[Rfam]
Nucleotides: 222
Base pairs, nucleotide, nucleotide: 020104021103022102023101024100025099029095030094031093032092113144114143115142116141117140121133122132123131124130145163146162147161148160149156167212168211169210170209173206182197183196184195186193187192
Number, partner (000 for none) and nucleotide at each position: 001000c002000u003000g004000c005000a006000a007000u008000a009000g010000c011000a012000a013000g014000c015000g016000c017000c018000a019000g020104a021103g022102c023101u024100u025099g026000a027000u028000c029095u030094u031093g032092c033000g034000c035000g036000g037000g038000g039000g040000a041000g042000a043000a044000g045000g046000g047000a048000a049000a050000g051000c052000c053000u054000g055000c056000a057000a058000g059000a060000u061000g062000c063000c064000a065000a066000u067000c068000a069000g070000g071000g072000c073000a074000a075000g076000g077000c078000u079000u080000g081000a082000a083000c084000g085000g086000a087000u088000c089000a090000c091000g092032g093031c094030a095029g096000a097000u098000g099025u100024a101023a102022g103021c104020u105000g106000a107000c108000g109000a110000g111000g112000u113144g114143g115142a116141g117140g118000c119000g120000u121133u122132c123131g124130a125000a126000a127000u128000g129000u130124u131123c132122g133121g134000c135000g136000g137000g138000g139000a140117c141116c142115u143114c144113c145163c146162g147161g148160u149156g150000a151000u152000g153000c154000a155000c156149c157000a158000g159000a160148g161147c162146c163145g164000u165000a166000a167212a168211u169210g170209g171000a172000a173206g174000c175000g176000g177000a178000a179000a180000a181000u182197g183196a184195g185000c186193g187192g188000g189000c190000g191000a192187c193186c194000a195184c196183u197182c198000u199000u200000a201000c202000a203000a204000c205000g206173c207000g208000a209170c210169u211168a212167u213000g214000g215000g216000u217000g218000c219000a220000a221000a222000u
glmS glucosamine-6-phosphate activated ribozyme aptamer: a 222-nucleotide sequence from Paenibacillus sp. FSL H7-0357.